[Rfam]
RNA sequence: CAAGAAAGACAAAACUGGUUUUCAUAAUGAUUUUGCAGAAUGUGUCAUGUUUCUGAGAUCAUUGUGAAAACUGGUUUUGUUAC
Numbered sequence: 001c002a003a004g005a006a007a008g009a010c011a012a013a014a015c016u017g018g019u020u021u022u023c024a025u026a027a028u029g030a031u032u033u034u035g036c037a038g039a040a041u042g043u044g045u046c047a048u049g050u051u052u053c054u055g056a057g058a059u060c061a062u063u064g065u066g067a068a069a070a071c072u073g074g075u076u077u078u079g080u081u082a083c
Stems, first nucleotide, its partner, number of pairs: 009080006016073010028061006
Shown here is an 83-nucleotide sequence from Octopus sinensis, a member of the family "bantam microRNA precursor family". The family has 28 seed sequences and 182 matches in Rfam 15.1. The family's consensus secondary structure was predicted with RNAalifold.